The family of this 146-nucleotide RNA from Paenibacillus sp. HGF7 is "FMN riboswitch aptamer (RFN element)". The family's consensus secondary structure is taken from published work.
RNA sequence: UUGAACCUUCGGGGUAGGGUGAAAGUCCCAACCGGCGGUGAUGGGUACGCAAGUACCCUAAGCCCGCGACUCCCGGCUGUUACGGCCGGGACUGACUUGGUGCGACUCCAAGGCCGACGGUAAAGUCCGGAUGGGAGAAGGUGAAA
Numbered sequence: 001u002u003g004a005a006c007c008u009u010c011g012g013g014g015u016a017g018g019g020u021g022a023a024a025g026u027c028c029c030a031a032c033c034g035g036c037g038g039u040g041a042u043g044g045g046u047a048c049g050c051a052a053g054u055a056c057c058c059u060a061a062g063c064c065c066g067c068g069a070c071u072c073c074c075g076g077c078u079g080u081u082a083c084g085g086c087c088g089g090g091a092c093u094g095a096c097u098u099g100g101u102g103c104g105a106c107u108c109c110a111a112g113g114c115c116g117a118c119g120g121u122a123a124a125g126u127c128c129g130g131a132u133g134g135g136a137g138a139a140g141g142u143g144a145a146a
Stems, first nucleotide, its partner, number of pairs: 005142006017029003031126002033116002035067004062114002071091002096112005118129003